[Rfam]
RNA: Bacterial large signal recognition particle RNA
Organism: Sporolactobacillus shoreae
RNA sequence: CCGUGCUAGACGGGGAGGCAGCGGUGCCCUGUGACUCGCAAUCCGCUACAGCGAGGUUGAAUUCCUUUUCGAGGUUUGUGCGAUGUGAGGCAGCCUCAGGCACGUGGUGUUGACGUCCGGGUCCCGCGCAACGGAAACUCAUGAACCCUGUCAGGUCCGGAAGGAAGCAGCAGUAAGUGAGACCUUUCGUGUGCCGCGGGGUUACCUGGGCUGAGCCGGCGAUCUGAGAAGCGCUUAUGGCGCCCUUAUCGACAAAAGGUGCACGG
Number, nucleotide and partner (000 for none) at each position: 001c266002c265003g264004u263005g262006c261007u000008a000009g058010a057011c056012g030013g029014g028015g027016a000017g025018g000019c023020a000021g000022c000023g019024g000025u017026g000027c015028c014029c013030u012031g000032u000033g000034a000035c055036u054037c053038g052039c051040a000041a000042u000043c000044c000045g000046c000047u000048a000049c000050a000051g039052c038053g037054a036055g035056g011057u010058u009059g000060a000061a000062u000063u000064c259065c258066u257067u256068u255069u254070c000071g000072a000073g250074g249075u248076u000077u000078g000079u000080g243081c242082g241083a000084u239085g238086u237087g236088a235089g234090g000091c000092a000093g232094c231095c228096u227097c226098a225099g224100g223101c000102a000103c221104g220105u000106g217107g216108u215109g000110u000111u000112g000113a000114c000115g211116u210117c209118c208119g207120g206121g205122u204123c200124c199125c198126g197127c196128g195129c191130a190131a000132c189133g188134g187135a186136a185137a000138c181139u180140c179141a178142u177143g000144a000145a000146c000147c000148c173149u172150g171151u170152c000153a000154g000155g000156u165157c164158c163159g000160g000161a000162a000163g158164g157165a156166a000167g000168c000169a000170g151171c150172a149173g148174u000175a000176a000177g142178u141179g140180a139181g138182a000183c000184c000185u136186u135187u134188c133189g132190u130191g129192u000193g000194c000195c128196g127197c126198g125199g124200g123201g000202u000203u000204a122205c121206c120207u119208g118209g117210g116211c115212u000213g000214a000215g108216c107217c106218g000219g000220c104221g103222a000223u100224c099225u098226g097227a096228g095229a000230a000231g094232c093233g000234c089235u088236u087237a086238u085239g084240g000241c082242g081243c080244c000245c000246u000247u000248a075249u074250c073251g000252a000253c000254a069255a068256a067257a066258g065259g064260u000261g006262c005263a004264c003265g002266g001